Annotation: The record is a 66-nucleotide RNA sequence, which matches "rdlD antitoxin" in Rfam. Rfam 15.1 lists 86 matches to the family in 59 species.

RNA sequence: GUCUAGAUGCGAGGUUAGCCCCCGAUACGUUGCCAGGUUUAUACCAACAACGUGCGGGGGUUUUCU
Numbered sequence: 001g002u003c004u005a006g007a008u009g010c011g012a013g014g015u016u017a018g019c020c021c022c023c024g025a026u027a028c029g030u031u032g033c034c035a036g037g038u039u040u041a042u043a044c045c046a047a048c049a050a051c052g053u054g055c056g057g058g059g060g061u062u063u064u065c066u
Base pairs, nucleotide, nucleotide: 017062018061019060020059021058022057023056024055028052029051030050031049032048036044